A member of the RNA family "Eukaryotic small subunit ribosomal RNA" from Bihospites bacati, 89 nucleotides of a longer RNA. Its Rfam clan is "SSU clan". Gene Ontology terms of the family: structural constituent of ribosome and ribosome.
RNA sequence: GCGAACUCGGGACCGGAUUGGGUAUUCAUUCACAUGACAUUUCCGGGACCUCACUUCCUCUCCUUCGGGAAACCAUUAAGUGUCUGCGU
Numbered sequence: 001g002c003g004a005a006c007u008c009g010g011g012a013c014c015g016g017a018u019u020g021g022g023u024a025u026u027c028a029u030u031c032a033c034a035u036g037a038c039a040u041u042u043c044c045g046g047g048a049c050c051u052c053a054c055u056u057c058c059u060c061u062c063c064u065u066c067g068g069g070a071a072a073c074c075a076u077u078a079a080g081u082g083u084c085u086g087c088g089u
Stems, first nucleotide, its partner, number of pairs: 001089003005081002009050002013046005022038002067074002